[Rfam]
RNA sequence: UUACUCUGGUUUCCCUUCAUAUAUACGCUUAAAUCUUUCGCCUUUUACUAAAGAUUUCCGUGGAGGGGAACAUCUGAUGAGUCUAUAUGACAAUUUUUUGUAGUACCCGGCGUAAGCUAGGUC
Numbered sequence: 001u002u003a004c005u006c007u008g009g010u011u012u013c014c015c016u017u018c019a020u021a022u023a024u025a026c027g028c029u030u031a032a033a034u035c036u037u038u039c040g041c042c043u044u045u046u047a048c049u050a051a052a053g054a055u056u057u058c059c060g061u062g063g064a065g066g067g068g069a070a071c072a073u074c075u076g077a078u079g080a081g082u083c084u085a086u087a088u089g090a091c092a093a094u095u096u097u098u099u100g101u102a103g104u105a106c107c108c109g110g111c112g113u114a115a116g117c118u119a120g121g122u123c
Base pairs, nucleotide, nucleotide: 003082004081005080006079009071010070011069012068013067014066015065016064017063018062019061031057032056033055034054035053036052037051038050105122106121107120109118
Dot-bracket structure: ..((((..(((((((((((...........((((((((...........))))))))...))))))))))).......))))......................(((.(........).))).